[Rfam]
RNA sequence: CUUAUGGAGUGUUAUACAAACCAAAGUAGCUUGGGCAAAAUGGAACACUAUGAAGUAGGAA
Numbered sequence: 001c002u003u004a005u006g007g008a009g010u011g012u013u014a015u016a017c018a019a020a021c022c023a024a025a026g027u028a029g030c031u032u033g034g035g036c037a038a039a040a041u042g043g044a045a046c047a048c049u050a051u052g053a054a055g056u057a058g059g060a061a
Stems, first nucleotide, its partner, number of pairs: 001059005009048005021043003029036002
Shown here is a 61-nucleotide sequence from Clostridium arbusti, a member of the family "RAGATH-18 RNA". Pairs were carried over by alignment from the consensus structure, which is taken from published work. NCBI's taxonomy places the organism under Bacteria, Clostridia, Eubacteriales, Clostridiaceae, Clostridium arbusti.